[Rfam]
RNA sequence: CUUGGGUACGGAGACAUGUAUCCUCAGACAUGGUCUGGCAUGCUGGUGGGAGCAUUGUGCGCUCUUGCUGGUGUGCUGACUAUUGCUAUGCCUGUACCUGUCAUUGUGAACAAU
Numbered sequence: 001c002u003u004g005g006g007u008a009c010g011g012a013g014a015c016a017u018g019u020a021u022c023c024u025c026a027g028a029c030a031u032g033g034u035c036u037g038g039c040a041u042g043c044u045g046g047u048g049g050g051a052g053c054a055u056u057g058u059g060c061g062c063u064c065u066u067g068c069u070g071g072u073g074u075g076c077u078g079a080c081u082a083u084u085g086c087u088a089u090g091c092c093u094g095u096a097c098c099u100g101u102c103a104u105u106g107u108g109a110a111c112a113a114u
Base pairs, nucleotide, nucleotide: 002113004111007108008107009106010105011104013102014101015100016099018097019096020095021094037077038076039075040074049063050062
RNA: Potassium channel RNA editing signal